Cia-dependent small RNA csRNA1: a 92-nucleotide sequence from Streptococcus himalayensis. NCBI's taxonomy places the organism under Bacteria, Bacillati, Lactobacillales, Streptococcaceae, Streptococcus. It scores 69 bits against the family's covariance model.

RNA sequence: CACAAGUUAAGAAAACCUUAACUUGAACCCCUAAAAACUUUUCUUUUUCAUAAUAAUCUCCCUAUGAAGCCACCCAAUUCGGUGGCUUUUUU
Numbered sequence: 001c002a003c004a005a006g007u008u009a010a011g012a013a014a015a016c017c018u019u020a021a022c023u024u025g026a027a028c029c030c031c032u033a034a035a036a037a038c039u040u041u042u043c044u045u046u047u048u049c050a051u052a053a054u055a056a057u058c059u060c061c062c063u064a065u066g067a068a069g070c071c072a073c074c075c076a077a078u079u080c081g082g083u084g085g086c087u088u089u090u091u092u
Stems, first nucleotide, its partner, number of pairs: 003025009066089009
A reference for the family is Halfmann et al. (2007), "Identification of the genes directly controlled by the response regulator CiaR in Streptococcus pneumoniae: five out of 15 promoters drive expression of small non-coding RNAs", Mol Microbiol.